A member of the RNA family "Small nucleolar RNA SNORD67" from Pogona vitticeps, 112 nucleotides long. Taxonomically the source falls in Pogona (Eukaryota, Vertebrata, Unidentata, Toxicofera). Pairs were carried over by alignment from the consensus structure. Rfam classes the family as a C/D-box small nucleolar RNA.
RNA sequence: AGCGAGACUGAUGAGUUGCACGUUUGGUGGCACUAAGUGUCAGGUGAUACAAGUGCCUUCCAGAACCUCCCUGUUGACAAAGCCCGAGUGCACAGGGGCCAUCUGAUUCGCU
Numbered sequence: 001a002g003c004g005a006g007a008c009u010g011a012u013g014a015g016u017u018g019c020a021c022g023u024u025u026g027g028u029g030g031c032a033c034u035a036a037g038u039g040u041c042a043g044g045u046g047a048u049a050c051a052a053g054u055g056c057c058u059u060c061c062a063g064a065a066c067c068u069c070c071c072u073g074u075u076g077a078c079a080a081a082g083c084c085c086g087a088g089u090g091c092a093c094a095g096g097g098g099c100c101a102u103c104u105g106a107u108u109c110g111c112u
Base pairs, nucleotide, nucleotide: 004111006109007108023064024063025062026061027059029057030056032054033053034052037050038049039048040047041046